[Rfam]
RNA sequence: UCCUCUGAUGAUUUAAUCCAUGUCUGAGGUGUAUGAAAACCAAGACCCUAUUUUGCAGGGAUAACCUACUUGGUGAAAAUACAUUUACAUGAAAUUAAUGGAUCUUAAUGAGAA
Dot-bracket structure: (.(..........................................((((.......))))...................................................).)
A member of the RNA family "Small nucleolar RNA Z278" from Protea cynaroides, 114 nucleotides long. From the family's description: snoZ278 is a C/D box small nucleolar RNA. Its methylation guide targets have not been reported. On this family, see Chen et al., Nucleic Acids Res 2003: "The high diversity of snoRNAs in plants: identification and comparative study of 120 snoRNA genes from Oryza sativa".